[Rfam]
RNA: ASdes TB sRNA
RNA sequence: AGCGCGACCGGGUCCACUCCCCUGGUGACGACGAGGUAGUCGCGCAUCGUGAUGCCGUGCCGGUUCUC
Numbered sequence: 001a002g003c004g005c006g007a008c009c010g011g012g013u014c015c016a017c018u019c020c021c022c023u024g025g026u027g028a029c030g031a032c033g034a035g036g037u038a039g040u041c042g043c044g045c046a047u048c049g050u051g052a053u054g055c056c057g058u059g060c061c062g063g064u065u066c067u068c
Stems, first nucleotide, its partner, number of pairs: 005062002008059001012029002015027004035056004040052005